[Rfam]
RNA sequence: GGGAUGUGAUGAGUGGUCAAUGCUCGCACUAAAUAUGCGAGAGGGUGUCUGCCCCAAGCCUGGUUACGAGAAUUGGGCACUCCCAUUUUCACAAAUUUGAUCCC
Numbered sequence: 001g002g003g004a005u006g007u008g009a010u011g012a013g014u015g016g017u018c019a020a021u022g023c024u025c026g027c028a029c030u031a032a033a034u035a036u037g038c039g040a041g042a043g044g045g046u047g048u049c050u051g052c053c054c055c056a057a058g059c060c061u062g063g064u065u066a067c068g069a070g071a072a073u074u075g076g077g078c079a080c081u082c083c084c085a086u087u088u089u090c091a092c093a094a095a096u097u098u099g100a101u102c103c104c
Stems, first nucleotide, its partner, number of pairs: 001104004014094001016092002023041005043082007061075004
RNA: Small nucleolar RNA Z279/snoR105/snoR108